[Rfam]
RNA: sraA
Organism: Erwinia mallotivora
RNA sequence: AGGUUUCUGAGUAUAUGGGGAUGGAUGCGACACAUUCAAUGUUAAGUGCGCGAGAAAAACAAAAGGGAGAAAAUUUUCUCCCUUUUUGCGAUAACU
Numbered sequence: 001a002g003g004u005u006u007c008u009g010a011g012u013a014u015a016u017g018g019g020g021a022u023g024g025a026u027g028c029g030a031c032a033c034a035u036u037c038a039a040u041g042u043u044a045a046g047u048g049c050g051c052g053a054g055a056a057a058a059a060c061a062a063a064a065g066g067g068a069g070a071a072a073a074u075u076u077u078c079u080c081c082c083u084u085u086u087u088g089c090g091a092u093a094a095c096u
Base pairs, nucleotide, nucleotide: 008038010036011035012034016032017031020028061086062085063084064083065082066081067080068079069078070077071076